A member of the RNA family "mir-252 microRNA precursor family" from Owenia fusiformis, 69 nucleotides long.
The family's consensus secondary structure was predicted with RNAalifold.
For this family Rfam cites "Large-scale sequencing reveals 21U-RNAs and additional microRNAs and endogenous siRNAs in C. elegans" (Ruby et al., Cell, 2006).

[Rfam]
RNA sequence: GCUCGAUUCUAAGUACUAGUGCCGCAGGAGACUCUAAACUUCCUGUGUUACUUGUGCUUACCAAAGCGC
Numbered sequence: 001g002c003u004c005g006a007u008u009c010u011a012a013g014u015a016c017u018a019g020u021g022c023c024g025c026a027g028g029a030g031a032c033u034c035u036a037a038a039c040u041u042c043c044u045g046u047g048u049u050a051c052u053u054g055u056g057c058u059u060a061c062c063a064a065a066g067c068g069c
Stems, first nucleotide, its partner, number of pairs: 001069002004066001007063001010060007018052002024046007